[Rfam]
RNA sequence: CCAGGGGGCCGGGCAGCCGCGGGCGGAGCGAUCCGUCCGAGGAAAGUCCGGGCUCCACGAAACGAGGGUGGCGGGUAACGCCCGCCGGCAUCGGACCGUCGGUCCGGCGUCAGGGACAGUGCCACAGAGAGCAGACGGCUGGCCUUCGGGCCGGUCACGGUGAAAGGGUGCGGUAAGAGCGCACCGCGCGCGCCGGCAAUGGCCGCGGCAUGGCAAACCCCACCCGGAGCAAGGCCGCAUAGGGGCCUCGCGCCUCAGAAAGAGGCAGGGGCGUUUCGCCCCGAGAGGCCCGGGUUGGCUGCUCGAGCCAUGGAGCGAUCCAUGGCCCAGAUGAAUGGCUGCCCCCGCGGCGCCGGUCGGAAACGAUACCGGUCGCGGGACAGAACCCGGCUUACAGGCCCCCUGGCAUC
Numbered sequence: 001c002c003a004g005g006g007g008g009c010c011g012g013g014c015a016g017c018c019g020c021g022g023g024c025g026g027a028g029c030g031a032u033c034c035g036u037c038c039g040a041g042g043a044a045a046g047u048c049c050g051g052g053c054u055c056c057a058c059g060a061a062a063c064g065a066g067g068g069u070g071g072c073g074g075g076u077a078a079c080g081c082c083c084g085c086c087g088g089c090a091u092c093g094g095a096c097c098g099u100c101g102g103u104c105c106g107g108c109g110u111c112a113g114g115g116a117c118a119g120u121g122c123c124a125c126a127g128a129g130a131g132c133a134g135a136c137g138g139c140u141g142g143c144c145u146u147c148g149g150g151c152c153g154g155u156c157a158c159g160g161u162g163a164a165a166g167g168g169u170g171c172g173g174u175a176a177g178a179g180c181g182c183a184c185c186g187c188g189c190g191c192g193c194c195g196g197c198a199a200u201g202g203c204c205g206c207g208g209c210a211u212g213g214c215a216a217a218c219c220c221c222a223c224c225c226g227g228a229g230c231a232a233g234g235c236c237g238c239a240u241a242g243g244g245g246c247c248u249c250g251c252g253c254c255u256c257a258g259a260a261a262g263a264g265g266c267a268g269g270g271g272c273g274u275u276u277c278g279c280c281c282c283g284a285g286a287g288g289c290c291c292g293g294g295u296u297g298g299c300u301g302c303u304c305g306a307g308c309c310a311u312g313g314a315g316c317g318a319u320c321c322a323u324g325g326c327c328c329a330g331a332u333g334a335a336u337g338g339c340u341g342c343c344c345c346c347g348c349g350g351c352g353c354c355g356g357u358c359g360g361a362a363a364c365g366a367u368a369c370c371g372g373u374c375g376c377g378g379g380a381c382a383g384a385a386c387c388c389g390g391c392u393u394a395c396a397g398g399c400c401c402c403c404u405g406g407c408a409u410c
Stems, first nucleotide, its partner, number of pairs: 001406010011395001012343007020039008044393003048390005053229004062276001064274001066225005071085005086113001087111003114220002119218002121214003136159002138155007167185006186209001187207004192203004233300004243291006268282005307326008

Shown here is a 410-nucleotide sequence from Erythrobacter sp. 3-20A1M, a member of the family "Bacterial RNase P class A". By type it is a ribozyme. The source organism's lineage runs through Bacteria, Pseudomonadati, Alphaproteobacteria, Erythrobacteraceae and Erythrobacter. From the family's description: Ribonuclease P (RNase P) is a ubiquitous endoribonuclease, found in archaea, bacteria and eukarya as well as chloroplasts and mitochondria. A reference for the family is Frank and Pace (1998), "Ribonuclease P: unity and diversity in a tRNA processing ribozyme", Annu Rev Biochem.